Nucleotides: 354
Stems, first nucleotide, its partner, number of pairs: 040053005057190005067183002069178004081167002085164003091107005108149007191206004197216002200214003320335004326351006
Number, partner (000 for none) and nucleotide at each position: 001000c002000c003000c004000a005000u006000u007000g008000a009000a010000a011000a012000g013000c014000c015000g016000c017000a018000c019000u020000a021000u022000c023000g024000g025000c026000c027000c028000u029000a030000u031000a032000u033000u034000c035000a036000a037000c038000u039000u040053g041052u042051c043050u044049g045000g046000c047000a048000a049044c050043a051042g052041a053040c054000u055000a056000u057190g058189a059188a060187c061186a062000u063000a064000a065000a066000c067183g068182c069178g070177c071176u072175c073000g074000u075000a076000a077000u078000a079000c080000g081167c082166g083000g084000a085164u086163c087162g088000g089000a090000c091107c092106c093105g094104g095103g096000g097000g098000c099000g100000g101000u102000a103095c104094c105093c106092g107091g108149c109148c110147a111146c112145u113144c114143c115000a116000c117000c118000a119000u120000a121000u122000a123000c124000c125000c126000g127000c128000u129000c130000a131000u132000u133000u134000g135000g136000c137000g138000g139000c140000c141000a142000u143114g144113g145112g146111g147110u148109g149108g150000a151000a152000a153000u154000a155000g156000g157000a158000u159000c160000g161000a162087c163086g164085a165000a166082c167081g168000u169000c170000u171000a172000a173000a174000g175072g176071g177070g178069u179000u180000u181000u182068g183067c184000u185000u186061u187060g188059u189058u190057u191206c192205g193204g194203u195000u196000a197216g198215g199000u200214a201213c202212c203194a204193c205192c206191g207000u208000u209000a210000u211000c212202g213201g214200u215198c216197c217000g218000a219000a220000a221000a222000g223000u224000a225000c226000a227000a228000u229000u230000g231000c232000a233000a234000a235000u236000g237000a238000c239000a240000a241000u242000c243000g244000u245000g246000c247000u248000c249000c250000g251000a252000u253000g254000g255000c256000u257000g258000u259000u260000g261000c262000c263000g264000c265000g266000u267000a268000a269000g270000c271000g272000g273000u274000a275000c276000c277000a278000a279000a280000c281000a282000u283000c284000g285000a286000a287000a288000a289000c290000u291000u292000a293000a294000g295000c296000c297000c298000u299000u300000g301000c302000g303000c304000c305000u306000a307000g308000c309000a310000g311000c312000g313000u314000a315000a316000g317000g318000c319000g320335g321334g322333g323332u324000u325000c326351g327350c328349a329348g330347g331346c332323a333322c334321c335320u336000g337000g338000c339000a340000a341000c342000a343000g344000a345000a346331g347330c348329c349328u350327g351326c352000a353000c354000u
Shown here is a 354-nucleotide sequence from Puniceibacterium sediminis, a member of the family "Alphaproteobacteria transfer-messenger RNA".
A reference for the family is Williams and Bartel (1996), "Phylogenetic analysis of tmRNA secondary structure", RNA.
The family's consensus secondary structure is taken from published work.
Lineage of the source: Bacteria > Pseudomonadati > Alphaproteobacteria > Paracoccaceae > Puniceibacterium.